RNA: terC RNA
RNA sequence: CGACCAGGCCGGGCCCCUCUGGCAGCCGUAUGGCUGCGAUGUCGGACUGGAAUU
Numbered sequence: 001c002g003a004c005c006a007g008g009c010c011g012g013g014c015c016c017c018u019c020u021g022g023c024a025g026c027c028g029u030a031u032g033g034c035u036g037c038g039a040u041g042u043c044g045g046a047c048u049g050g051a052a053u054u
Stems, first nucleotide, its partner, number of pairs: 006048002009045004022037006